Rfam assigns this 143-nucleotide sequence from Flavobacterium caeni to the family "Flavo-1 RNA". A search with the family's covariance model found it, with a score of 46 bits.
RNA sequence: GACCGGCCCCCGGAUGGCAGCGGAAAGCCUUUUGGAGAAAAACCUAUUUUUUUCACGACGAUGACGGCGACCAGCGGAAGCCGAAAGCGGCGCAGUAAAAAAAGGUUUUUGACAAAAGCUUGCAGCGUACAGCCGGAAUUGUG
Numbered sequence: 001g002a003c004c005g006g007c008c009c010c011c012g013g014a015u016g017g018c019a020g021c022g023g024a025a026a027g028c029c030u031u032u033u034g035g036a037g038a039a040a041a042a043c044c045u046a047u048u049u050u051u052u053u054c055a056c057g058a059c060g061a062u063g064a065c066g067g068c069g070a071c072c073a074g075c076g077g078a079a080g081c082c083g084a085a086a087g088c089g090g091c092g093c094a095g096u097a098a099a100a101a102a103a104g105g106u107u108u109u110u111g112a113c114a115a116a117a118g119c120u121u122g123c124a125g126c127g128u129a130c131a132g133c134c135g136g137a138a139u140u141g142u143g
Stems, first nucleotide, its partner, number of pairs: 011135003015131002020126002025121004031116004
Notes:
Pairs were carried over by alignment from the consensus structure, which is taken from published work. By type it is a small RNA. NCBI's taxonomy places the organism under Bacteria, Pseudomonadati, Flavobacteriia, Flavobacteriales, Flavobacterium.